This 195-nucleotide sequence from Vibrio genomosp. F10 belongs to the Rfam family "MicX Vibrio cholerae sRNA". Rfam classes the family as a small RNA. It scores 143 bits against the family's covariance model. The organism belongs to Vibrio, within Bacteria.
RNA sequence: AUAAUAAUAAUUAGGGCGACCCAUUAGGAUCGCCCAUUUGUCCUUAACUUAACACUUUCAGGUUUGGCCGCCGAUCCGUUAAGUCUAAGAGCAGUUCUGGCGUUACGCAUAGCUGGCUGUUAGCUUGAUUCCUUACUAAAAAACUCACUAACAGUUUUUGUAACCAAAACCCGAGCAUCGCUUGGGUUUUUUUAU
Dot-bracket structure: .............((((((.(......).)))))).......((..(((((((....((.(((......)))))...)))))))........)).......((((((.......(((((((((........................)))))))))..))))))...(((((((((...))))))))).......
Numbered sequence: 001a002u003a004a005u006a007a008u009a010a011u012u013a014g015g016g017c018g019a020c021c022c023a024u025u026a027g028g029a030u031c032g033c034c035c036a037u038u039u040g041u042c043c044u045u046a047a048c049u050u051a052a053c054a055c056u057u058u059c060a061g062g063u064u065u066g067g068c069c070g071c072c073g074a075u076c077c078g079u080u081a082a083g084u085c086u087a088a089g090a091g092c093a094g095u096u097c098u099g100g101c102g103u104u105a106c107g108c109a110u111a112g113c114u115g116g117c118u119g120u121u122a123g124c125u126u127g128a129u130u131c132c133u134u135a136c137u138a139a140a141a142a143a144c145u146c147a148c149u150a151a152c153a154g155u156u157u158u159u160g161u162a163a164c165c166a167a168a169a170c171c172c173g174a175g176c177a178u179c180g181c182u183u184g185g186g187u188u189u190u191u192u193u194a195u
Stems, first nucleotide, its partner, number of pairs: 014035006021028001043094002047084007058074002061072003102164006115156009168188009